[Rfam]
RNA sequence: ACCGUCUUUAUCUCGGGGUUGCGCAUCAUUCCAAUGAACGUUUAGUGAGGAUUGAUCUGCUAACACCACUAAAAUAUCAACGUGUCACCGACUCUCAGUUGGUCGGCACAAUUUUUGAGGCU
Numbered sequence: 001a002c003c004g005u006c007u008u009u010a011u012c013u014c015g016g017g018g019u020u021g022c023g024c025a026u027c028a029u030u031c032c033a034a035u036g037a038a039c040g041u042u043u044a045g046u047g048a049g050g051a052u053u054g055a056u057c058u059g060c061u062a063a064c065a066c067c068a069c070u071a072a073a074a075u076a077u078c079a080a081c082g083u084g085u086c087a088c089c090g091a092c093u094c095u096c097a098g099u100u101g102g103u104c105g106g107c108a109c110a111a112u113u114u115u116u117g118a119g120g121c122u
Base pairs, nucleotide, nucleotide: 006018007017008016009015021060022059023058026055027054028053030051031050032049038046039045082109083108084107085106086105088102089101090100091099092098093097
The record is a 122-nucleotide RNA sequence from Capitella teleta, which matches "U4atac minor spliceosomal RNA" in Rfam.
The family's consensus secondary structure is taken from published work.
A reference for the family is Lorkovic et al. (2005), "Evolutionary conservation of minor U12-type spliceosome between plants and humans", RNA.
Gene Ontology terms of the family: mRNA 5'-splice site recognition, U4atac snRNP and spliceosomal tri-snRNP complex assembly.
About the family: U4atac is an essential component of the minor U12-type spliceosome complex which is required for removal of the rarer class of eukaryotic introns (AT-AC, U12-type).
A search with the family's covariance model found it, with a score of 82 bits.
It is annotated as a spliceosomal small nuclear RNA.